[Rfam]
RNA sequence: GCGUGGACGAAUUCUGUGUUACUCAUUUCAGUAGUAAAAGCAGCCAGACACCAUGCUAGAGUAUGCUCGCUUUCGGUUAGCAGUAUGGCUGCGUGCUGUUCAGUGCCACAGUCUCAUUUUGGGAGUGAAUACAAAG
Numbered sequence: 001g002c003g004u005g006g007a008c009g010a011a012u013u014c015u016g017u018g019u020u021a022c023u024c025a026u027u028u029c030a031g032u033a034g035u036a037a038a039a040g041c042a043g044c045c046a047g048a049c050a051c052c053a054u055g056c057u058a059g060a061g062u063a064u065g066c067u068c069g070c071u072u073u074c075g076g077u078u079a080g081c082a083g084u085a086u087g088g089c090u091g092c093g094u095g096c097u098g099u100u101c102a103g104u105g106c107c108a109c110a111g112u113c114u115c116a117u118u119u120u121g122g123g124a125g126u127g128a129a130u131a132c133a134a135a136g
Stems, first nucleotide, its partner, number of pairs: 001056006014043004019038001067128002070125007082118003087113005093107001